Shown here is a 321-nucleotide sequence from Gasterosteus aculeatus, a member of the family "7SK RNA".
Rfam's curators write: 7SK was discovered as an abundant small nuclear RNA in the mid-70s but a possible function has only recently been suggested. Two independent studies have found that 7SK RNA binds the CDK9/cyclin T complex (known as elongation factor P-TEFb).
Rfam 15.1 lists 49,373 matches to the family in 668 species.
The family's consensus secondary structure is taken from published work.
It is one of the family's seed sequences.
Clan: 7SK clan.
NCBI's taxonomy places the organism under Eukaryota, Bilateria, Actinopterygii, Euteleosteomorpha, Gasterosteus.
The literature on the family includes a 2002 paper in Curr Biol by Blencowe, "Transcription: surprising role for an elusive small nuclear RNA".
[Rfam]
Nucleotides: 321
Base pairs, nucleotide, nucleotide: 001109002108003107005103006102007101008100009099010098011097013094014093018091019090024088025087026086027085028084029083030082031081032080033079035075036074037071038070039069042068043067044066045065046063047062048061117172118171119168120167122165123140124139125138126137128136129135141164142163143162148159149158194265195264196263200259201258203256204255205254206253207252208251215246216245217244218243221241222240223239224238225237286321287320288319290316291315292314293313294312295309296308297307298306299305
Number, partner (000 for none) and nucleotide at each position: 001109g002108g003107a004000u005103g006102u007101g008100a009099g010098g011097g012000c013094g014093a015000u016000c017000u018091g019090g020000c021000u022000g023000c024088g025087a026086c027085a028084u029083c030082u031081g032080u033079c034000a035075c036074c037071c038070c039069a040000u041000u042068g043067a044066u045065c046063g047062c048061u049000a050000g051000g052000u053000u054000u055000g056000a057000u058000u059000u060000c061048g062047g063046c064000u065045g066044a067043u068042c069039u070038g071037g072000c073000u074036g075035g076000c077000u078000a079033g080032g081031c082030g083029g084028g085027u086026g087025u088024c089000c090019c091018c092000u093014u094013c095000c096000u097011c098010c099009c100008u101007c102006a103005c104000c105000g106000c107003u108002c109001c110000a111000u112000g113000u114000g115000u116000g117172u118171c119168c120167c121000u122165c123140c124139c125138g126137a127000a128136g129135c130000c131000c132000a133000g134000c135129g136128c137126u138125c139124g140123g141164u142163g143162g144000c145000a146000g147000a148159g149158g150000a151000c152000g153000a154000g155000g156000u157000c158149c159148c160000c161000c162143c163142c164141g165122g166000c167120g168119g169000a170000c171118g172117a173000c174000c175000a176000u177000c178000c179000a180000u181000c182000g183000g184000u185000g186000u187000a188000c189000c190000a191000g192000u193000a194265g195264c196263u197000a198000c199000g200259c201258u202000c203256c204255c205254c206253u207252g208251c209000u210000a211000g212000a213000a214000c215246c216245u217244c218243c219000a220000a221241a222240c223239a224238a225237g226000c227000u228000c229000a230000a231000g232000g233000c234000c235000c236000a237225u238224u239223u240222g241221u242000a243218g244217g245216a246215g247000a248000a249000a250000c251208g252207u253206a254205g255204g256203g257000a258201a259200g260000u261000u262000a263196a264195g265194c266000u267000c268000c269000a270000a271000g272000c273000g274000u275000c276000a277000g278000g279000c280000a281000c282000a283000u284000c285000c286321a287320a288319a289000u290316g291315a292314g293313g294312c295309g296308c297307u298306g299305c300000a301000c302000g303000u304000g305299g306298c307297a308296g309295u310000c311000u312294g313293c314292c315291u316290u317000c318000c319288u320287u321286u